The family of this 104-nucleotide sequence is "TPP riboswitch aptamer (THI element)". The base pairs follow the family's consensus structure, which is taken from published work.
RNA sequence: UGGAUCAGCUAGGGGAGCGAAAAUUGCUGAGAGGGCAGGAAUCACUGCCGACCCUUGAACCUGAUCCGGGUAAUACUGGCGAAGGAAAGCAUCUAGCGAACAUC
Numbered sequence: 001u002g003g004a005u006c007a008g009c010u011a012g013g014g015g016a017g018c019g020a021a022a023a024u025u026g027c028u029g030a031g032a033g034g035g036c037a038g039g040a041a042u043c044a045c046u047g048c049c050g051a052c053c054c055u056u057g058a059a060c061c062u063g064a065u066c067c068g069g070g071u072a073a074u075a076c077u078g079g080c081g082a083a084g085g086a087a088a089g090c091a092u093c094u095a096g097c098g099a100a101c102a103u104c
Stems, first nucleotide, its partner, number of pairs: 008090003011055004017027004034049005060085003066079004
Gene Ontology term of the family: thiamine pyrophosphate binding. A search with the family's covariance model found it, with a score of 62 bits.